Rfam assigns this 263-nucleotide sequence from Streptomyces pseudogriseolus to the family "Streptomyces sRNA 4677". The pairing is the family consensus, mapped onto this sequence. The source organism's lineage runs through Bacteria, Kitasatosporales, Streptomycetaceae, Streptomyces and Streptomyces pseudogriseolus. Located in the intergenic region between anti-sigma factor SCO4677 gene and a putative regulatory protein gene SCO4676. scr4677 expression requires the SCO4677 activity and scr4677 sRNA itself seem to affect the levels of the SCO4676-associated transcripts. The match comes from Rfam's covariance-model search (173 bits). Rfam 15.1 lists 563 matches to the family in 285 species. On this family, see Hindra et al., PLoS One 2014: "Complex intra-operonic dynamics mediated by a small RNA in Streptomyces coelicolor".
RNA sequence: CGCUUCGGUGACGUCGGCGACUAAAACCCAGCAAGAACUCGGGGAGAAAGCACCCCGCCAAGCCCCACCCCUCCCGCCCGCGAUCCUGCUCACUCGGGCGGGUGAACCGUGUCGAACUGGCUGGCUUUCCUCGCCAUUCAGGCCCCACGCUCAGCGCAGGGCAACGCACAACGCCCCACCACAACCGCAGACAUGAGACGGCCCCCGCCGGGACGGCAAUCCCAGUGCGAGGGCCUGACCACCGAGGAAGGUAGAGCUUCCCG
Numbered sequence: 001c002g003c004u005u006c007g008g009u010g011a012c013g014u015c016g017g018c019g020a021c022u023a024a025a026a027c028c029c030a031g032c033a034a035g036a037a038c039u040c041g042g043g044g045a046g047a048a049a050g051c052a053c054c055c056c057g058c059c060a061a062g063c064c065c066c067a068c069c070c071c072u073c074c075c076g077c078c079c080g081c082g083a084u085c086c087u088g089c090u091c092a093c094u095c096g097g098g099c100g101g102g103u104g105a106a107c108c109g110u111g112u113c114g115a116a117c118u119g120g121c122u123g124g125c126u127u128u129c130c131u132c133g134c135c136a137u138u139c140a141g142g143c144c145c146c147a148c149g150c151u152c153a154g155c156g157c158a159g160g161g162c163a164a165c166g167c168a169c170a171a172c173g174c175c176c177c178a179c180c181a182c183a184a185c186c187g188c189a190g191a192c193a194u195g196a197g198a199c200g201g202c203c204c205c206c207g208c209c210g211g212g213a214c215g216g217c218a219a220u221c222c223c224a225g226u227g228c229g230a231g232g233g234c235c236u237g238a239c240c241a242c243c244g245a246g247g248a249a250g251g252u253a254g255a256g257c258u259u260c261c262c263g
Stems, first nucleotide, its partner, number of pairs: 007243004016078004090105006120155005200235005206229003210223004246261005